[Rfam]
RNA sequence: GGAUUACCCCUUUGAGCUUUCGCGCUGUGUUGAUAAAGUUUCGCAUCUCUAUCAAAUCGGAUAAUCCCACCCGCAAGACUCUGCUGUCAGAUCAAGUCUGAACUACAGCAGAUAAAGUUCAUUAGUCUCACUUCUUGCUUAUUUAUUGUAAAUUUCUUAAUAUUUCCGCUCCGAUGGUAAUAUCAGUUG
Number, nucleotide and partner (000 for none) at each position: 001g067002g066003a065004u064005u063006a062007c000008c000009c060010c059011u000012u000013u000014g025015a000016g023017c022018u000019u000020u000021c000022g017023c016024g000025c014026u000027g000028u000029g057030u056031u055032g053033a052034u051035a050036a000037a048038g047039u000040u000041u000042c000043g000044c000045a000046u000047c038048u037049c000050u035051a034052u033053c032054a000055a031056a030057u029058c000059g010060g009061a000062u006063a005064a004065u003066c002067c001068c000069a187070c186071c000072c000073g138074c137075a136076a000077g000078a000079c000080u000081c000082u130083g129084c000085u000086g103087u102088c100089a099090g098091a097092u096093c000094a000095a000096g092097u091098c090099u089100g088101a000102a087103c086104u000105a126106c125107a000108g123109c000110a122111g000112a000113u000114a000115a000116a000117g000118u000119u000120c000121a000122u110123u108124a000125g106126u105127c000128u000129c083130a082131c000132u000133u000134c000135u000136u075137g074138c073139u000140u000141a000142u000143u000144u000145a000146u000147u000148g000149u000150a000151a000152a000153u000154u000155u000156c000157u180158u179159a178160a000161u000162a000163u177164u176165u174166c173167c000168g000169c000170u000171c000172c000173g166174a165175u000176g164177g163178u159179a158180a157181u000182a000183u000184c000185a000186g070187u069188u000189g000
RNA: Proteobacterial sRNA psRNA2
Organism: Nitrosomonas sp. AL212